[Rfam]
Nucleotides: 243
Stems, first nucleotide, its partner, number of pairs: 001166005014156004026145002030142003036052005053127007167182004
Number, partner (000 for none) and nucleotide at each position: 001166g002165g003164c004163g005162a006000u007000a008000a009000a010000c011000u012000g013000a014156c015155g016154g017153u018000g019000u020000a021000a022000u023000a024000a025000a026145c027144c028000a029000u030142u031141c032140g033000g034000a035000c036052c037051c038050g039049g040048g041000g042000g043000c044000g045000g046000u047000a048040c049039c050038c051037g052036g053127c054126g055125c056124c057123u058122c059121c060000a061000c062000c063000g064000g065000a066000a067000g068000c069000u070000c071000u072000c073000u074000c075000c076000u077000c078000a079000u080000c081000c082000c083000g084000c085000c086000g087000a088000c089000a090000g091000g092000c093000g094000g095000c096000g097000a098000c099000g100000a101000g102000g103000g104000a105000u106000c107000g108000g109000a110000g111000a112000g113000c114000u115000u116000g117000c118000g119000g120000c121059g122058g123057g124056g125055g126054c127053g128000a129000a130000a131000u132000a133000g134000g135000a136000u137000c138000g139000a140032c141031g142030a143000g144027g145026g146000u147000g148000u149000a150000a151000a152000g153017a154016u155015c156014g157000g158000a159000c160000u161000u162005u163004c164003g165002c166001u167182c168181g169180g170179c171000a172000u173000u174000g175000u176000a177000c178000c179170g180169c181168c182167g183000u184000u185000a186000u187000c188000g189000g190000g191000c192000u193000a194000u195000u196000u197000u198000u199000a200000u201000a202000g203000u204000u205000g206000c207000c208000a209000a210000c211000g212000a213000c214000a215000a216000c217000u218000a219000u220000g221000c222000g223000g224000a225000a226000g227000u228000c229000c230000g231000u232000c233000u234000c235000g236000c237000u238000g239000c240000u241000u242000a243000a
Rfam assigns this 243-nucleotide sequence from Aureimonas sp. Leaf460 to the family "permuted transfer-messenger RNA". Rfam classes the family as a non-coding RNA gene. Bacterial tmRNA, also known as 10Sa RNA or SsrA, is named for its dual tRNA and mRNA-like properties. Its role is to liberate the mRNA from a stalled ribosome. On this family, see Zwieb et al., Nucleic Acids Res 2003: "tmRDB (tmRNA database)". It scores 142 bits against the family's covariance model.